[Rfam]
RNA sequence: GGGAUGUGAUGAGUGGUCAAAAGCUCACUAUUGUGAAACGGGUGUCCGCCCAAGCCUGGUUACGACAAAUUGGGCACUCUAGUCUUUAGCCAUCUGAUCCC
Numbered sequence: 001g002g003g004a005u006g007u008g009a010u011g012a013g014u015g016g017u018c019a020a021a022a023g024c025u026c027a028c029u030a031u032u033g034u035g036a037a038a039c040g041g042g043u044g045u046c047c048g049c050c051c052a053a054g055c056c057u058g059g060u061u062a063c064g065a066c067a068a069a070u071u072g073g074g075c076a077c078u079c080u081a082g083u084c085u086u087u088a089g090c091c092a093u094c095u096g097a098u099c100c101c
Stems, first nucleotide, its partner, number of pairs: 001101004014092004025036004040079007057072004
The family of this 101-nucleotide sequence from Kingdonia uniflora is "Small nucleolar RNA Z279/snoR105/snoR108". Rfam's curators write: This family includes the plant snoRNAs known as Z279, snoR105 and snoR108. NCBI's taxonomy places the organism under Eukaryota, Viridiplantae, Streptophyta, Spermatophyta, Kingdonia. It scores 74 bits against the family's covariance model. The literature on the family includes a 2002 paper in Curr Biol by Marker et al., "Experimental RNomics: identification of 140 candidates for small non-messenger RNAs in the plant Arabidopsis thaliana".